Rfam assigns this 122-nucleotide RNA from Rhinolophus ferrumequinum to the family "Small nucleolar RNA SNORA26". The base pairs follow the family's consensus structure, which was predicted with RNAalifold. Rfam's curators write: The snoRNA HBI-6 belong to the H/ACA family of snoRNAs, guiding the pseudouridylation of position U4522 if the 28S rRNA. HBI-6 is the human orthologue of mouse MBI-6 snoRNA. On this family, see Huttenhofer et al., EMBO J 2001: "RNomics: an experimental approach that identifies 201 candidates for novel, small, non-messenger RNAs in mouse".
RNA sequence: GUUUCCUUUUAAGGCUGACCCAGUGUCGUAAGAGGCUAACACAGAAGGGUAAAGUAAGACUCCAUAAAACCCAGAGAAGGGAUUGUAAAACUCCUCUUUGGAUCUUGUCUGGAGUCACAGCU
Numbered sequence: 001g002u003u004u005c006c007u008u009u010u011a012a013g014g015c016u017g018a019c020c021c022a023g024u025g026u027c028g029u030a031a032g033a034g035g036c037u038a039a040c041a042c043a044g045a046a047g048g049g050u051a052a053a054g055u056a057a058g059a060c061u062c063c064a065u066a067a068a069a070c071c072c073a074g075a076g077a078a079g080g081g082a083u084u085g086u087a088a089a090a091c092u093c094c095u096c097u098u099u100g101g102a103u104c105u106u107g108u109c110u111g112g113a114g115u116c117a118c119a120g121c122u
Stems, first nucleotide, its partner, number of pairs: 002051001004049007014040001016038002019035001021032001058116001060114005071101007079093003083090002